Background: A member of the RNA family "U7 small nuclear RNA" from Molossus molossus, 63 nucleotides long.
RNA sequence: UAGUGCUGACAGCUCUUUUUGAAAUUGUCUACUAGGUCUUCUGGUUUUUAUCAGAAGUCCCUA
Numbered sequence: 001u002a003g004u005g006c007u008g009a010c011a012g013c014u015c016u017u018u019u020u021g022a023a024a025u026u027g028u029c030u031a032c033u034a035g036g037u038c039u040u041c042u043g044g045u046u047u048u049u050a051u052c053a054g055a056a057g058u059c060c061c062u063a
Stems, first nucleotide, its partner, number of pairs: 035060002038057008

The match comes from Rfam's covariance-model search (47 bits).